[Rfam]
purD RNA motif: a 131-nucleotide sequence from Sulfurospirillum deleyianum.

RNA sequence: GUACGUUUUUGGUGUGUCUGUGGUUUCGUUUGAGCUUUGUUGCAAGGCGAGAAAUUGCAGCCUAAAAAAAAGGUCAAUUCCCAGAAGUUGGCUUAUUAGGGCCGCUUCAAUCUCGGAACGCUCACUUGGGU
Numbered sequence: 001g002u003a004c005g006u007u008u009u010u011g012g013u014g015u016g017u018c019u020g021u022g023g024u025u026u027c028g029u030u031u032g033a034g035c036u037u038u039g040u041u042g043c044a045a046g047g048c049g050a051g052a053a054a055u056u057g058c059a060g061c062c063u064a065a066a067a068a069a070a071a072g073g074u075c076a077a078u079u080c081c082c083a084g085a086a087g088u089u090g091g092c093u094u095a096u097u098a099g100g101g102c103c104g105c106u107u108c109a110a111u112c113u114c115g116g117a118a119c120g121c122u123c124a125c126u127u128g129g130g131u
Stems, first nucleotide, its partner, number of pairs: 003074002006072005018060005024054004034048004089104006

Background: The organism belongs to Sulfurospirillum deleyianum, within Bacteria. For this family Rfam cites "Identification of 22 candidate structured RNAs in bacteria using the CMfinder comparative genomics pipeline" (Weinberg et al., Nucleic Acids Res, 2007). Pairs were carried over by alignment from the consensus structure, which is taken from published work.